Record summary
This 208-nucleotide RNA from Pseudescherichia vulneris belongs to the Rfam family "GlmZ RNA activator of glmS mRNA". The family's consensus secondary structure is taken from published work. The family's RNA type in Rfam is small RNA.

[Rfam]
RNA sequence: GUAGAUGCUCAUUCCAUCUCUUAUGCUCGCCGCAAGGCUUCAUAAACUCAGGAAUGACGCAGAGCCGUUUAAUGGUGCUUAUCGUCCACAGACAGAUGUCGCUCCGGCCUCAUCAAACACCAUGGACACAACGUUGAGUGAAGCACCAAAUUUGUUGUCACGCAGACCUGUUUAAUGCCCGCUCUGGUUUCAGAGCGGGCGUUUUUUU
Numbered sequence: 001g002u003a004g005a006u007g008c009u010c011a012u013u014c015c016a017u018c019u020c021u022u023a024u025g026c027u028c029g030c031c032g033c034a035a036g037g038c039u040u041c042a043u044a045a046a047c048u049c050a051g052g053a054a055u056g057a058c059g060c061a062g063a064g065c066c067g068u069u070u071a072a073u074g075g076u077g078c079u080u081a082u083c084g085u086c087c088a089c090a091g092a093c094a095g096a097u098g099u100c101g102c103u104c105c106g107g108c109c110u111c112a113u114c115a116a117a118c119a120c121c122a123u124g125g126a127c128a129c130a131a132c133g134u135u136g137a138g139u140g141a142a143g144c145a146c147c148a149a150a151u152u153u154g155u156u157g158u159c160a161c162g163c164a165g166a167c168c169u170g171u172u173u174a175a176u177g178c179c180c181g182c183u184c185u186g187g188u189u190u191c192a193g194a195g196c197g198g199g200c201g202u203u204u205u206u207u208u
Base pairs, nucleotide, nucleotide: 001065002064006061007060008059009057010056011055012054015052017051019044027037074147075146076145077144078143079142080141084127085126086125087124088123095114096113097112098111157167158166159165174203175202176201177200178199179198180197181196182195183194184193

This RNA was discovered in E. coli during a large scale screen.